Record summary: This 109-nucleotide RNA sequence from Bacillus sp. FJAT-50079 belongs to the Rfam family "SAM riboswitch aptamer (S box leader)".
RNA sequence: UUCUUAUCGAGAGAGGUUGAGGGAAUGGCCCGAUGACACCUCAGCAACCACCGUUUCAUGCGGAAAGGUGCUACAUCCAGCAAGUUGGAAACGACUUGAAAGAUGAGAA
Numbered sequence: 001u002u003c004u005u006a007u008c009g010a011g012a013g014a015g016g017u018u019g020a021g022g023g024a025a026u027g028g029c030c031c032g033a034u035g036a037c038a039c040c041u042c043a044g045c046a047a048c049c050a051c052c053g054u055u056u057c058a059u060g061c062g063g064a065a066a067g068g069u070g071c072u073a074c075a076u077c078c079a080g081c082a083a084g085u086u087g088g089a090a091a092c093g094a095c096u097u098g099a100a101a102g103a104u105g106a107g108a109a
Stems, first nucleotide, its partner, number of pairs: 001109008013042005021031003026079003043072004048068002051063003076101001081098006

About the family: The SAM riboswitch is found upstream of a number of genes which code for proteins involved in methionine or cysteine biosynthesis in Gram-positive bacteria. Its family is annotated with regulation of gene expression in the Gene Ontology.